RNA: Alphaproteobacterial ar14
RNA sequence: AAUAUGCAGUCUGGAGCUAUCCUCCUCCCAAGUUCCUGACUGCAGACCUACGCCAAACGCGUAGGAUCAAAAAAAACGCCUGCCGGAUCCUCCUCCCAUCGGCAGGCGUUUUUU
Numbered sequence: 001a002a003u004a005u006g007c008a009g010u011c012u013g014g015a016g017c018u019a020u021c022c023u024c025c026u027c028c029c030a031a032g033u034u035c036c037u038g039a040c041u042g043c044a045g046a047c048c049u050a051c052g053c054c055a056a057a058c059g060c061g062u063a064g065g066a067u068c069a070a071a072a073a074a075a076a077c078g079c080c081u082g083c084c085g086g087a088u089c090c091u092c093c094u095c096c097c098a099u100c101g102g103c104a105g106g107c108g109u110u111u112u113u114u
Stems, first nucleotide, its partner, number of pairs: 007042003011038001013036005045067001047065007076109011